[Rfam]
RNA sequence: UGGACAGAUUAUUGUAUUUGACUGUAUUCACGGCGUGAAUCAGGGAUUACACUGUUUUUAACCGGAAAGUGAAUCAAUUAACACAAUAGACUCCU
Numbered sequence: 001u002g003g004a005c006a007g008a009u010u011a012u013u014g015u016a017u018u019u020g021a022c023u024g025u026a027u028u029c030a031c032g033g034c035g036u037g038a039a040u041c042a043g044g045g046a047u048u049a050c051a052c053u054g055u056u057u058u059u060a061a062c063c064g065g066a067a068a069g070u071g072a073a074u075c076a077a078u079u080a081a082c083a084c085a086a087u088a089g090a091c092u093c094c095u
Base pairs, nucleotide, nucleotide: 002094003093004092009089010088011087012086013085014084015083017081018080020079021078023076024075026074027073028072029071030070031069034064035063037058038057039056041054042053043052
Notes
The record is a 95-nucleotide RNA sequence from Nicotiana attenuata, which matches "MIR6152 microRNA precursor family" in Rfam. Its family is annotated with miRNA-mediated post-transcriptional gene silencing and RISC complex in the Gene Ontology.